[Rfam]
RNA: mir-210 microRNA precursor family
RNA sequence: UGUAACCACAUUACAGCUGCUGGACAAUGCACAAGAUUAGAUUUAGAAACUCUUGUGCGUGUGACAUCAGCUAUUGUGUGUGUUACUUUGCUACACU
Numbered sequence: 001u002g003u004a005a006c007c008a009c010a011u012u013a014c015a016g017c018u019g020c021u022g023g024a025c026a027a028u029g030c031a032c033a034a035g036a037u038u039a040g041a042u043u044u045a046g047a048a049a050c051u052c053u054u055g056u057g058c059g060u061g062u063g064a065c066a067u068c069a070g071c072u073a074u075u076g077u078g079u080g081u082g083u084u085a086c087u088u089u090g091c092u093a094c095a096c097u
Base pairs, nucleotide, nucleotide: 005083006082007080008079009078010077011076015072016071017070018069019068021066022065025061026060028059029058030057031056032055033054035052036051